[Rfam]
RNA sequence: UUCUUAUUCAGAGAAGCUGAGGGAUCUGGUCCGUCGAAGCUUCAGCAACCGGCCUGUUUAGGUGAGGUGCUACCUCCAGCAAGUGGGAUGAAUGUCCACUUGAAAGAUAAGAA
Number, nucleotide and partner (000 for none) at each position: 001u113002u112003c111004u110005u109006a108007u107008u106009c000010a000011g000012a000013g043014a042015a041016g040017c039018u000019g000020a000021g032022g031023g030024a000025u000026c079027u078028g077029g076030u023031c022032c021033g000034u000035c000036g000037a000038a000039g017040c016041u015042u014043c013044a071045g070046c069047a068048a000049c067050c066051g063052g000053c061054c000055u000056g000057u000058u000059u000060a000061g053062g000063u051064g000065a000066g050067g049068u047069g046070c045071u044072a000073c000074c000075u105076c029077c028078a027079g026080c102081a101082a100083g099084u098085g097086g096087g095088a000089u000090g000091a000092a000093u000094g000095u087096c086097c085098a084099c083100u082101u081102g080103a000104a000105a075106g008107a007108u006109a005110a004111g003112a002113a001